[Rfam]
RNA sequence: UAGAACUAAUUAGACAAGAAAGUGGAAUGAGAGAGUAACGUCUUAAAACGCUUCCCCUAAUACUCCGACAUGCAACGGAUUGAGUAUGAAGUCCAAUGUAUGAAGCUCGGUGAAGUCGAGGGAAAGUUGCCCAAACAGGGAUGGUAUUGACCGUGACAGGCGGCGCGUGACACAAUACUGAGCUGUGGAAAGCUAACCAGAGGUGGGUGGUGCAACUGAUACUACGGGGGUCUACAAA
Numbered sequence: 001u002a003g004a005a006c007u008a009a010u011u012a013g014a015c016a017a018g019a020a021a022g023u024g025g026a027a028u029g030a031g032a033g034a035g036u037a038a039c040g041u042c043u044u045a046a047a048a049c050g051c052u053u054c055c056c057c058u059a060a061u062a063c064u065c066c067g068a069c070a071u072g073c074a075a076c077g078g079a080u081u082g083a084g085u086a087u088g089a090a091g092u093c094c095a096a097u098g099u100a101u102g103a104a105g106c107u108c109g110g111u112g113a114a115g116u117c118g119a120g121g122g123a124a125a126g127u128u129g130c131c132c133a134a135a136c137a138g139g140g141a142u143g144g145u146a147u148u149g150a151c152c153g154u155g156a157c158a159g160g161c162g163g164c165g166c167g168u169g170a171c172a173c174a175a176u177a178c179u180g181a182g183c184u185g186u187g188g189a190a191a192g193c194u195a196a197c198c199a200g201a202g203g204u205g206g207g208u209g210g211u212g213c214a215a216c217u218g219a220u221a222c223u224a225c226g227g228g229g230g231u232c233u234a235c236a237a238a
Stems, first nucleotide, its partner, number of pairs: 018054001020053005032044002035041001055230004065110004069102006077094005117226002120223002125217006131188003138184002192211004197206003
The record is a 238-nucleotide RNA from Candidatus Epulonipiscioides saccharophilum, which matches "Group II catalytic intron D1-D4-5" in Rfam. A reference for the family is Bonen and Vogel (2001), "The ins and outs of group II introns", Trends Genet. A search with the family's covariance model found it, with a score of 155 bits. The source organism's lineage runs through Bacteria, Bacillati, Bacillota, Lachnospirales and Candidatus Epulonipiscioides.